Overview: The record is a 155-nucleotide sequence from Populus tomentosa, which matches "MIR2912 microRNA precursor family" in Rfam.
RNA sequence: UCUACAACUCGAGAUAUGGGUUGAACAUUGAAUAGUGUUUGGGCUGUAAGAUAAAUUAGACUUCUCCGUUGUUGCUAUAAUUUGGUCUUGAAAAUGACAUUUUUAAAUCUUGGACUUCACAUGAAAGUUUUAGGUCUAUGUCUUAUCUUUCCAUC
Dot-bracket structure: ..(..((.(.(((((((((((((((.(((.....(((...(((.(..(((((.((..((..(........(.(...........).)........).).)..))..)))))..).))).)))...)))))))).)))))))))))...))..)..
The family has 2 seed sequences and 15,051 matches in Rfam 15.1.